This 74-nucleotide RNA from Medicago truncatula belongs to the Rfam family "MIR5272 microRNA precursor family".

RNA sequence: UUGGAUGUGAAUUGAUUUAUGUUUUGAUACACUUAAUUAAAAUUGAUUCUUACAAGUUGAUGUUGUUUGGAUUA
Dot-bracket structure: ..........((((((((..((...(((.((.((......)).)))))...)))))))))).............
About this RNA:
Rfam 15.1 lists 271 matches to the family in 4 species. Rfam links the family to the GO terms miRNA-mediated post-transcriptional gene silencing and RISC complex.